Record summary:
TPP riboswitch aptamer (THI element): a 119-nucleotide sequence from Arthrobacter ulcerisalmonis. Taxonomically the source falls in Arthrobacter (Bacteria, Bacillati, Actinomycetota, Actinomycetes). Vitamin B(1) in its active form thiamin pyrophosphate (TPP) is an essential coenzyme that is synthesised by coupling of pyrimidine and thiazole moieties in bacteria.
[Rfam]
RNA sequence: GUGGGGUACUGCGGGAGCCCGCGGCAGCUGUCACAAAGCGCCGGGCUGAGAGGGCGUCAGAGCCGACCGCUUGACCUGAUCCGGGUAAUGCCGGCGUAGGGAAGGAUUCACCGUGGACU
Number, nucleotide and partner (000 for none) at each position: 001g000002u000003g000004g000005g000006g107007u106008a000009c104010u103011g070012c069013g068014g067015g000016a000017g046018c045019c044020c043021g042022c000023g000024g000025c000026a000027g000028c000029u000030g000031u000032c000033a000034c000035a000036a000037a000038g000039c000040g000041c000042c021043g020044g019045g018046c017047u000048g000049a000050g000051a000052g000053g064054g063055c062056g000057u000058c000059a000060g000061a000062g055063c054064c053065g000066a000067c014068c013069g012070c011071u000072u000073g000074a000075c100076c099077u098078g097079a000080u000081c094082c093083g092084g091085g000086u000087a000088a000089u000090g000091c084092c083093g082094g081095c000096g000097u078098a077099g076100g075101g000102a000103a010104g009105g000106a007107u006108u000109c000110a000111c000112c000113g000114u000115g000116g000117a000118c000119u000